[Rfam]
RNA sequence: GCAUGGGUUUGGAUUUAUGGCAGGCUCGUCCCCCUGGGCCUCUCAUAGUGUCCCAUGCCAGAGUAAAUCCGGCCCGAACCAUUGCCUGCCUCUGGCAGUAGGCUGCAGGACUGAAGUGGGUUGCAGAGUG
Numbered sequence: 001g002c003a004u005g006g007g008u009u010u011g012g013a014u015u016u017a018u019g020g021c022a023g024g025c026u027c028g029u030c031c032c033c034c035u036g037g038g039c040c041u042c043u044c045a046u047a048g049u050g051u052c053c054c055a056u057g058c059c060a061g062a063g064u065a066a067a068u069c070c071g072g073c074c075c076g077a078a079c080c081a082u083u084g085c086c087u088g089c090c091u092c093u094g095g096c097a098g099u100a101g102g103c104u105g106c107a108g109g110a111c112u113g114a115a116g117u118g119g120g121u122u123g124c125a126g127a128g129u130g
Stems, first nucleotide, its partner, number of pairs: 001058004005053004015048006022041003025037002070123006080113002085108001086105001088103004

Background
Small nucleolar RNA SNORA42/SNORA80 family: a 130-nucleotide RNA. The members of this family belong to the H/ACA class of snoRNAs that guide the sites of modification of uridines to pseudouridines. Human ACA42 (SNORA42) was cloned from HeLa cells by immunoprecipitation with anti-GAR1 antibody. The family's consensus secondary structure was predicted with RNAalifold. On this family, see Schattner et al., RNA 2006: "A computational screen for mammalian pseudouridylation guide H/ACA RNAs". Rfam's curators put it in the seed alignment.